Overview:
Rfam assigns this 225-nucleotide RNA from Streptomyces sp. 3214.6 to the family "Streptomyces RNA 1601". Identified by deep sequencing of transcriptome at the end of exponential growth phase. The match comes from Rfam's covariance-model search (171 bits). Lineage of the source: Bacteria > Bacillati > Actinomycetota > Streptomycetaceae > Streptomyces. On this family, see Vockenhuber et al., RNA Biol 2011: "Deep sequencing-based identification of small non-coding RNAs in Streptomyces coelicolor". It is annotated as a small RNA.
RNA sequence: AACGACCGGUCGGACACGCGUGCGUCCCAGCAGGCGGGCCCGGCCCACAAGUGGAGACUCCGAGCUCCCACCCGACUGUCCUCCAGGACGGCGGGUCACCCCGGUCAGGCGGCCACCAUCGUUCCGUACGGACGAUGGAGUCGCCCGGUAGUGCGCCCCGCGAUCCUUGCGGCGGUGCUCCGGUAGUGCUUGGAGCCCCGCAUGUGAUCGUUCGGGGCAUUUUUU
Numbered sequence: 001a002a003c004g005a006c007c008g009g010u011c012g013g014a015c016a017c018g019c020g021u022g023c024g025u026c027c028c029a030g031c032a033g034g035c036g037g038g039c040c041c042g043g044c045c046c047a048c049a050a051g052u053g054g055a056g057a058c059u060c061c062g063a064g065c066u067c068c069c070a071c072c073c074g075a076c077u078g079u080c081c082u083c084c085a086g087g088a089c090g091g092c093g094g095g096u097c098a099c100c101c102c103g104g105u106c107a108g109g110c111g112g113c114c115a116c117c118a119u120c121g122u123u124c125c126g127u128a129c130g131g132a133c134g135a136u137g138g139a140g141u142c143g144c145c146c147g148g149u150a151g152u153g154c155g156c157c158c159c160g161c162g163a164u165c166c167u168u169g170c171g172g173c174g175g176u177g178c179u180c181c182g183g184u185a186g187u188g189c190u191u192g193g194a195g196c197c198c199c200g201c202a203u204g205u206g207a208u209c210g211u212u213c214g215g216g217g218c219a220u221u222u223u224u225u
Stems, first nucleotide, its partner, number of pairs: 004106006012041002042097005048074001051071004055066002076091006108145003112142001116138008155218006161210003168206003172201004177196005